[Rfam]
RNA: Selenocysteine insertion sequence 1
RNA sequence: GUGUGAUAAUGACAAUCUGUCUCCAAACUCAACAUAGAGAGGAGCAGGUUUGAUGCUCAAACACAC
Numbered sequence: 001g002u003g004u005g006a007u008a009a010u011g012a013c014a015a016u017c018u019g020u021c022u023c024c025a026a027a028c029u030c031a032a033c034a035u036a037g038a039g040a041g042g043a044g045c046a047g048g049u050u051u052g053a054u055g056c057u058c059a060a061a062c063a064c065a066c
Stems, first nucleotide, its partner, number of pairs: 001066005014050007022042002028039003